[Rfam]
RNA sequence: AAUCACACUAUCAAUGAAUAGAUUCACCCGUGAGAUGACGUGACUAUUUCAUCUAGGAUGAGGACAUGUCAUCCUAUUAACCGCCAUCGCACGAAAUUAAUAGGAUGCCGUCUUCAUCCUAGAUGGAACGACCACGUCAUCUCACGGGUGAAUCUAUUCAUCGAUAGUGUGGUU
Numbered sequence: 001a002a003u004c005a006c007a008c009u010a011u012c013a014a015u016g017a018a019u020a021g022a023u024u025c026a027c028c029c030g031u032g033a034g035a036u037g038a039c040g041u042g043a044c045u046a047u048u049u050c051a052u053c054u055a056g057g058a059u060g061a062g063g064a065c066a067u068g069u070c071a072u073c074c075u076a077u078u079a080a081c082c083g084c085c086a087u088c089g090c091a092c093g094a095a096a097u098u099a100a101u102a103g104g105a106u107g108c109c110g111u112c113u114u115c116a117u118c119c120u121a122g123a124u125g126g127a128a129c130g131a132c133c134a135c136g137u138c139a140u141c142u143c144a145c146g147g148g149u150g151a152a153u154c155u156a157u158u159c160a161u162c163g164a165u166a167g168u169g170u171g172g173u174u
Base pairs, nucleotide, nucleotide: 001174002173003172004171005170006169007168009166010165011164012163014161015160017158018157019156021154022153023152024151025150026149027148028147030145031144032143033142035140036139037138038137039136041134042133045130047128048127051124052123054121055120057118058117063112064111065110070107071106072105073104074103075102076101077100078099079098086097087096
RNA: MIR807 microRNA precursor family
Organism: Oryza sativa